The family of this 68-nucleotide RNA from Falsibacillus albus is "Bacillaceae-1 RNA". NCBI's taxonomy places the organism under Bacteria, Bacillota, Bacilli, Bacillaceae, Falsibacillus. It scores 48 bits against the family's covariance model.
RNA sequence: AUAGGUGGAUGUUCGAUAAAGUUCGGCACGUCCAUGUGCCAACAUCGAACGACCUCACAUCGUGUGAG
Dot-bracket structure: ..........(((((((.......(((((......)))))...)))))))...(((((.....)))))